This 57-nucleotide RNA sequence from Ornithinimicrobium pratense belongs to the Rfam family "msiK RNA". Pairs were carried over by alignment from the consensus structure, which is taken from published work.

RNA sequence: GGGUGGGUCCUUUACGACGGAUCGUCCGGCACGUACCUGCCGGUGAAGGAGAUGGAU
Numbered sequence: 001g002g003g004u005g006g007g008u009c010c011u012u013u014a015c016g017a018c019g020g021a022u023c024g025u026c027c028g029g030c031a032c033g034u035a036c037c038u039g040c041c042g043g044u045g046a047a048g049g050a051g052a053u054g055g056a057u
Stems, first nucleotide, its partner, number of pairs: 008050007026043006